[Rfam]
RNA: A. fumigatus sRNA Afu_254
Organism: Penicillium concentricum
RNA sequence: UAUCAAAGCCAAACACUACUCUUAAGCUUCUUUUUCAAGGUUCUUUACCUACCACCUCUAUAUUCAUCAUGUCUCCUUGCACCUGUAACUGCUGCUCCGGCGAGUGCAACUCCUGCUCUUGUGCCAGCUGCAAGGUAUGUCAUUGCUUGCU
Numbered sequence: 001u002a003u004c005a006a007a008g009c010c011a012a013a014c015a016c017u018a019c020u021c022u023u024a025a026g027c028u029u030c031u032u033u034u035u036c037a038a039g040g041u042u043c044u045u046u047a048c049c050u051a052c053c054a055c056c057u058c059u060a061u062a063u064u065c066a067u068c069a070u071g072u073c074u075c076c077u078u079g080c081a082c083c084u085g086u087a088a089c090u091g092c093u094g095c096u097c098c099g100g101c102g103a104g105u106g107c108a109a110c111u112c113c114u115g116c117u118c119u120u121g122u123g124c125c126a127g128c129u130g131c132a133a134g135g136u137a138u139g140u141c142a143u144u145g146c147u148u149g150c151u
Base pairs, nucleotide, nucleotide: 078102079101080100085095086094087093106131107130108129115122116121